This 144-nucleotide RNA sequence from Suricata suricatta belongs to the Rfam family "U12 minor spliceosomal RNA". By type it is a spliceosomal small nuclear RNA. The pairing is the family consensus, mapped onto this sequence. Its Rfam clan is "U2 clan". On this family, see Tarn and Steitz, Trends Biochem Sci 1997: "Pre-mRNA splicing: the discovery of a new spliceosome doubles the challenge".
[Rfam]
RNA sequence: AUGCCUUAAUGAGUAAGGACAACAAUGAUUCAAGGGGAUACCCAAAUACUGACUGCUAAUGUGAGACAAAUUUUUGAUGGGUAAGGUUUGCCCCUAACAUGACUUGCCUACUUUGCAAAAUGCCUCAGAAUCACCAUCUGCCCG
Numbered sequence: 001a002u003g004c005c006u007u008a009a010u011g012a013g014u015a016a017g018g019a020c021a022a023c024a025a026u027g028a029u030u031c032a033a034g035g036g037g038a039u040a041c042c043c044a045a046a047u048a049c050u051g052a053c054u055g056c057u058a059a060u061g062u063g064a065g066a067c068a069a070a071u072u073u074u075u076g077a078u079g080g081g082u083a084a085g086g087u088u089u090g091c092c093c094c095u096a097a098c099a100u101g102a103c104u105u106g107c108c109u110a111c112u113u114u115g116c117a118a119a120a121u122g123c124c125u126c127a128g129a130a131u132c133a134c135c136a137u138c139u140g141c142c143c144g
Stems, first nucleotide, its partner, number of pairs: 004018005028047003034041001049065002052062002078144005085139002088136001090134001094128002097125001100122002104118004